[Rfam]
RNA sequence: CCAAAGGCUCUUUUAAGAGCCACCCAUUUUAUCGCAGAAAGAGCGU
Numbered sequence: 001c002c003a004a005a006g007g008c009u010c011u012u013u014u015a016a017g018a019g020c021c022a023c024c025c026a027u028u029u030u031a032u033c034g035c036a037g038a039a040a041g042a043g044c045g046u
Stems, first nucleotide, its partner, number of pairs: 006021006
RNA: Histone 3' UTR stem-loop